RNA sequence: AUUAAGCUUCGAGCGUCCUCGGUGCAGGCGAAGCUCCUAUCCAUAGAGGAAGCCUGCGACCUCACACCAUCGCAUUCAGCCCGGUCCAAAUAUGGGUAUGGUGCACAGGACGUUAGAAGCCAU
Numbered sequence: 001a002u003u004a005a006g007c008u009u010c011g012a013g014c015g016u017c018c019u020c021g022g023u024g025c026a027g028g029c030g031a032a033g034c035u036c037c038u039a040u041c042c043a044u045a046g047a048g049g050a051a052g053c054c055u056g057c058g059a060c061c062u063c064a065c066a067c068c069a070u071c072g073c074a075u076u077c078a079g080c081c082c083g084g085u086c087c088a089a090a091u092a093u094g095g096g097u098a099u100g101g102u103g104c105a106c107a108g109g110a111c112g113u114u115a116g117a118a119g120c121c122a123u
Base pairs, nucleotide, nucleotide: 006120007119008118009117010116012114013113014112015111016110017109018108022065023064024063028057029056035050036049037048038047068103069102070101071100074097075096076095077094079091

Description: The record is a 123-nucleotide RNA, which matches "Hepatitis C virus J7880 RNA" in Rfam. Rfam classes the family as a cis-regulatory element. The literature on the family includes a 2015 paper in Proc Natl Acad Sci U S A by Mauger et al., "Functionally conserved architecture of hepatitis C virus RNA genomes".